[Rfam]
RNA sequence: CUGCGACCACACGGGAGCCCCUUGGCAGGGGCUGAGAUCGGACUGCAGCCGUCCGCGACCGUUGAACCUGUCCGGGUAAUGCCGGCGAAGGAAGUGAGUUUCUUAAUGGA
Dot-bracket structure: .......(((((((..(((((......)))))......(((((.......)))))...))))....(((..((((......))))...)))..)))..............
Numbered sequence: 001c002u003g004c005g006a007c008c009a010c011a012c013g014g015g016a017g018c019c020c021c022u023u024g025g026c027a028g029g030g031g032c033u034g035a036g037a038u039c040g041g042a043c044u045g046c047a048g049c050c051g052u053c054c055g056c057g058a059c060c061g062u063u064g065a066a067c068c069u070g071u072c073c074g075g076g077u078a079a080u081g082c083c084g085g086c087g088a089a090g091g092a093a094g095u096g097a098g099u100u101u102c103u104u105a106a107u108g109g110a
Stems, first nucleotide, its partner, number of pairs: 008096003011062004017032005039055005067091003072085004

Annotation:
The record is a 110-nucleotide sequence from Arthrobacter sp. NIO-1057, which matches "TPP riboswitch aptamer (THI element)" in Rfam. Pairs were carried over by alignment from the consensus structure, which is taken from published work. The organism belongs to Arthrobacter, within Bacteria.